[Rfam]
RNA: Bacterial RNase P class A
RNA sequence: CGAGUCGGCCGGACGGUCGCGUCGGGGCAGGCCCCCGCCGAGGAAAGUCCGGGCUCCACAGGACACGGUGGUGGCUAACGGCCACCCGGGGUGACCCGCGGGACAGUGCCACAGAAAACAAACCGCCCAUUCGGGUAAGGGUGAAAAGGCGGGGUAAGAGCCCACCGCACCCCAGGUGACUGGGGUGGCACGGUAAACCCCACCGGGAGCAAGACCAAGCAGCGUCCAGGGUUGUCCGCCCGACGGGCGCGGGUAGGUUGCUACAGGCCUCCAGCAAUGGCGGUCGUAGAGGGAUGACCGUCCACCGCGCACGCGGUGACAGAACCCGGCUUACAGGCCGACUCGUUCC
Numbered sequence: 001c002g003a004g005u006c007g008g009c010c011g012g013a014c015g016g017u018c019g020c021g022u023c024g025g026g027g028c029a030g031g032c033c034c035c036c037g038c039c040g041a042g043g044a045a046a047g048u049c050c051g052g053g054c055u056c057c058a059c060a061g062g063a064c065a066c067g068g069u070g071g072u073g074g075c076u077a078a079c080g081g082c083c084a085c086c087c088g089g090g091g092u093g094a095c096c097c098g099c100g101g102g103a104c105a106g107u108g109c110c111a112c113a114g115a116a117a118a119c120a121a122a123c124c125g126c127c128c129a130u131u132c133g134g135g136u137a138a139g140g141g142u143g144a145a146a147a148g149g150c151g152g153g154g155u156a157a158g159a160g161c162c163c164a165c166c167g168c169a170c171c172c173c174a175g176g177u178g179a180c181u182g183g184g185g186u187g188g189c190a191c192g193g194u195a196a197a198c199c200c201c202a203c204c205g206g207g208a209g210c211a212a213g214a215c216c217a218a219g220c221a222g223c224g225u226c227c228a229g230g231g232u233u234g235u236c237c238g239c240c241c242g243a244c245g246g247g248c249g250c251g252g253g254u255a256g257g258u259u260g261c262u263a264c265a266g267g268c269c270u271c272c273a274g275c276a277a278u279g280g281c282g283g284u285c286g287u288a289g290a291g292g293g294a295u296g297a298c299c300g301u302c303c304a305c306c307g308c309g310c311a312c313g314c315g316g317u318g319a320c321a322g323a324a325c326c327c328g329g330c331u332u333a334c335a336g337g338c339c340g341a342c343u344c345g346u347u348c349c
Stems, first nucleotide, its partner, number of pairs: 001345010011334001012302007020040002023037005045332003049329005054209004061237004066205005071085005086100001087098004101200002106198002108194003123140002125136004148166002151163003167189001168187008213259004222250006229241004266285004271280003